Rfam assigns this 79-nucleotide RNA from Nicotiana attenuata to the family "Small nucleolar RNA R12". Its family is annotated with RNA processing and nucleolus in the Gene Ontology. NCBI's taxonomy places the organism under Eukaryota, Viridiplantae, Embryophyta, eudicotyledons, Nicotiana.
RNA sequence: GUAAGGAUGAUGAAGAAAUCAUUCGGAUUCCCACUGAUGUAUAUACUGUGAUUACUACAACCAGCUACUUCUGACUUGC
Number, nucleotide and partner (000 for none) at each position: 001g079002u078003a077004a076005g075006g000007a000008u000009g000010a000011u000012g000013a000014a000015g000016a000017a000018a000019u000020c000021a000022u000023u000024c000025g000026g000027a000028u000029u000030c000031c000032c000033a000034c000035u000036g000037a000038u000039g000040u000041a000042u000043a000044u000045a000046c000047u000048g000049u000050g000051a000052u000053u000054a000055c000056u000057a000058c000059a000060a000061c000062c000063a000064g000065c000066u000067a000068c000069u000070u000071c000072u000073g000074a000075c005076u004077u003078g002079c001
From the family's description: snoR12 is a C/D box small nucleolar RNA, which acts as a methylation guide for 25S ribosomal RNA in plants. snoR12 has been alternatively named snoZ44 in Arabidopsis and snoZ131 in rice. It is annotated as a C/D-box small nucleolar RNA. The family's consensus secondary structure was predicted with PFOLD.